[Rfam]
RNA: Group I catalytic intron
RNA sequence: ACACCUUGUUGAGCAAGGCGGGUCAAGACGUGGUAAAGAAGCUUAAGUGCCUCGUCUAUAAAAAAACCUCGUGAAUUGCUGGGAACUCUUUAAUGACUAGUUGGCUACAACGAAACCGGAAACGGUAAUCGUGAAUGCUUAAAAACAACAGUGGAUAAAGACAAUCAGCAGCCAAGCUCCUACGUCUUUGAAAAAAGAUAUGGAGAAGGUUCAACGACCAUCGAAAGCACACGAAUUGUGGAAGCGAGUAGAGUAGGGACCAAGUGGUUCCGAAGCGCGAGGGCACUCAAAAGAGUGUAAGAAAUGGUCUGAACUCUAGGGCGACCUAGAG
Numbered sequence: 001a002c003a004c005c006u007u008g009u010u011g012a013g014c015a016a017g018g019c020g021g022g023u024c025a026a027g028a029c030g031u032g033g034u035a036a037a038g039a040a041g042c043u044u045a046a047g048u049g050c051c052u053c054g055u056c057u058a059u060a061a062a063a064a065a066a067c068c069u070c071g072u073g074a075a076u077u078g079c080u081g082g083g084a085a086c087u088c089u090u091u092a093a094u095g096a097c098u099a100g101u102u103g104g105c106u107a108c109a110a111c112g113a114a115a116c117c118g119g120a121a122a123c124g125g126u127a128a129u130c131g132u133g134a135a136u137g138c139u140u141a142a143a144a145a146c147a148a149c150a151g152u153g154g155a156u157a158a159a160g161a162c163a164a165u166c167a168g169c170a171g172c173c174a175a176g177c178u179c180c181u182a183c184g185u186c187u188u189u190g191a192a193a194a195a196a197g198a199u200a201u202g203g204a205g206a207a208g209g210u211u212c213a214a215c216g217a218c219c220a221u222c223g224a225a226a227g228c229a230c231a232c233g234a235a236u237u238g239u240g241g242a243a244g245c246g247a248g249u250a251g252a253g254u255a256g257g258g259a260c261c262a263a264g265u266g267g268u269u270c271c272g273a274a275g276c277g278c279g280a281g282g283g284c285a286c287u288c289a290a291a292a293g294a295g296u297g298u299a300a301g302a303a304a305u306g307g308u309c310u311g312a313a314c315u316c317u318a319g320g321g322c323g324a325c326c327u328a329g330a331g
Stems, first nucleotide, its partner, number of pairs: 002022001004021002007018001009016002026057005067282004072277002077170006087161005171210002177205004185198005214310001216309005285296004316329005